[Rfam]
RNA sequence: ACUGGAAAAACUGGAAAAACUUUUACCAGUCGAAUUCUCUAAUAUACUUGAUCAGAAAGAAAAAAUCACUUAAAAAUCAAGCAUUUAUUGGUAGGCGCGAUUGGACUCGAACCAACGACCCCCACCA
Numbered sequence: 001a002c003u004g005g006a007a008a009a010a011c012u013g014g015a016a017a018a019a020c021u022u023u024u025a026c027c028a029g030u031c032g033a034a035u036u037c038u039c040u041a042a043u044a045u046a047c048u049u050g051a052u053c054a055g056a057a058a059g060a061a062a063a064a065a066u067c068a069c070u071u072a073a074a075a076a077u078c079a080a081g082c083a084u085u086u087a088u089u090g091g092u093a094g095g096c097g098c099g100a101u102u103g104g105a106c107u108c109g110a111a112c113c114a115a116c117g118a119c120c121c122c123c124a125c126c127a
Stems, first nucleotide, its partner, number of pairs: 003028003009022002012019001048055001089124003094119001098117002101115004
The record is a 127-nucleotide sequence from Acidihalobacter aeolianus, which matches "Bacterial antisense RNA HPnc0260" in Rfam. It scores 63 bits against the family's covariance model. On this family, see Sharma et al., Nature 2010: "The primary transcriptome of the major human pathogen Helicobacter pylori". The organism belongs to Acidihalobacter, within Bacteria.